[Rfam]
RNA sequence: ACCCUGUCACCGCCCUGGUUCCCACGGAUGACCGCACGGCAGGGGCGGGGGACCCACGAUUCGGGCACCGGUGACGGUGUCCUCGGGGUGAAGUCCCACGGUUCGCACGGACCGCGGGGCCGGGUGUUUUCUCCCACCCGAACCCGACAGCUGACCUCGUAGGCGAACGGAGAGGUUGA
Numbered sequence: 001a002c003c004c005u006g007u008c009a010c011c012g013c014c015c016u017g018g019u020u021c022c023c024a025c026g027g028a029u030g031a032c033c034g035c036a037c038g039g040c041a042g043g044g045g046c047g048g049g050g051g052a053c054c055c056a057c058g059a060u061u062c063g064g065g066c067a068c069c070g071g072u073g074a075c076g077g078u079g080u081c082c083u084c085g086g087g088g089u090g091a092a093g094u095c096c097c098a099c100g101g102u103u104c105g106c107a108c109g110g111a112c113c114g115c116g117g118g119g120c121c122g123g124g125u126g127u128u129u130u131c132u133c134c135c136a137c138c139c140g141a142a143c144c145c146g147a148c149a150g151c152u153g154a155c156c157u158c159g160u161a162g163g164c165g166a167a168c169g170g171a172g173a174g175g176u177u178g179a
Stems, first nucleotide, its partner, number of pairs: 002044007045160006055085001086145003094119004122139004

Rfam assigns this 179-nucleotide RNA sequence from Isoptericola sediminis to the family "c-di-AMP riboswitch aptamer (ydaO/yuaA leader)". From the family's description: This family represents a conserved RNA structure found upstream of the ydaO and yuaA genes in Bacillus subtilis and related genes in other bacteria. NCBI's taxonomy places the organism under Bacteria, Bacillati, Actinomycetota, Micrococcales, Isoptericola. The match comes from Rfam's covariance-model search (61 bits).